[Rfam]
RNA sequence: UCUUUCCAGGUCUGUGGUUGCGGACGCAAAUGGCUAUGGUCUGUGCGUCUUAGUCCAUGGCAGACGAGGCCAAAAGGAUCCACGUAAGUUCGGAUCGCGAUUCGAGCGAGCAUGGCUCGUCCUAGAGGUAAGCCGCACCGCCCGUCCUACUAGAGAUAUUCCGUCUCGCGGGCGAGAGAGUUUGUAGUGGGGGCAUCGCGUAGCCCGAAGCGAAGACUCCUGUGCGCGAGUGUGGGGUCAAAUACCAGGUCAGCUGGGAAGA
Numbered sequence: 001u002c003u004u005u006c007c008a009g010g011u012c013u014g015u016g017g018u019u020g021c022g023g024a025c026g027c028a029a030a031u032g033g034c035u036a037u038g039g040u041c042u043g044u045g046c047g048u049c050u051u052a053g054u055c056c057a058u059g060g061c062a063g064a065c066g067a068g069g070c071c072a073a074a075a076g077g078a079u080c081c082a083c084g085u086a087a088g089u090u091c092g093g094a095u096c097g098c099g100a101u102u103c104g105a106g107c108g109a110g111c112a113u114g115g116c117u118c119g120u121c122c123u124a125g126a127g128g129u130a131a132g133c134c135g136c137a138c139c140g141c142c143c144g145u146c147c148u149a150c151u152a153g154a155g156a157u158a159u160u161c162c163g164u165c166u167c168g169c170g171g172g173c174g175a176g177a178g179a180g181u182u183u184g185u186a187g188u189g190g191g192g193g194c195a196u197c198g199c200g201u202a203g204c205c206c207g208a209a210g211c212g213a214a215g216a217c218u219c220c221u222g223u224g225c226g227c228g229a230g231u232g233u234g235g236g237g238u239c240a241a242a243u244a245c246c247a248g249g250u251c252a253g254c255u256g257g258g259a260a261g262a
Stems, first nucleotide, its partner, number of pairs: 001262009012253003015247004057233003060070001063121006079115002088107007113240001134226005139174007178219004187211002193204002